[Rfam]
Rfam assigns this 88-nucleotide RNA sequence from Weissella paramesenteroides to the family "SAM riboswitch aptamer (S box leader)". A search with the family's covariance model found it, with a score of 52 bits. The organism belongs to Weissella paramesenteroides, within Bacteria.

RNA sequence: AUCCUAUCAAGAGUCAGGGAGGGACUAGACCCCGUGAGCUGACACCAACUACCGUAACGGUGAUGUGGUAAUUUCUAGCAGAUAGGCG
Numbered sequence: 001a002u003c004c005u006a007u008c009a010a011g012a013g014u015c016a017g018g019g020a021g022g023g024a025c026u027a028g029a030c031c032c033c034g035u036g037a038g039c040u041g042a043c044a045c046c047a048a049c050u051a052c053c054g055u056a057a058c059g060g061u062g063a064u065g066u067g068g069u070a071a072u073u074u075c076u077a078g079c080a081g082a083u084a085g086g087c088g
Base pairs, nucleotide, nucleotide: 003086004085005084006083007082008081013043014042015041016040017039021032022031023030026077027076028075029074044069045068046067047066049065051061052060053059054058073080